[Rfam]
RNA: Actinobacteria sRNA Ms_IGR-7
RNA sequence: CGAGAUGCCUCUCUUAUCAGGCGAAAUGGAACCUUCGACAAGUCCUAUUUUCCCUGAUCAGGAAGGCAUUCUCCGUUUAACGCGCCGACCCCCACUAAACGUCCAUCGGUGGAUUCAG
Numbered sequence: 001c002g003a004g005a006u007g008c009c010u011c012u013c014u015u016a017u018c019a020g021g022c023g024a025a026a027u028g029g030a031a032c033c034u035u036c037g038a039c040a041a042g043u044c045c046u047a048u049u050u051u052c053c054c055u056g057a058u059c060a061g062g063a064a065g066g067c068a069u070u071c072u073c074c075g076u077u078u079a080a081c082g083c084g085c086c087g088a089c090c091c092c093c094a095c096u097a098a099a100c101g102u103c104c105a106u107c108g109g110u111g112g113a114u115u116c117a118g
Stems, first nucleotide, its partner, number of pairs: 002073003005069006011062002014060001016058001018056004024050004029045001031043002101114005
Dot-bracket structure: .(((((((((((.(.(.((((..((((.(.((.........)).).))))..)))).).))).)))))).)))...........................(((((....)))))....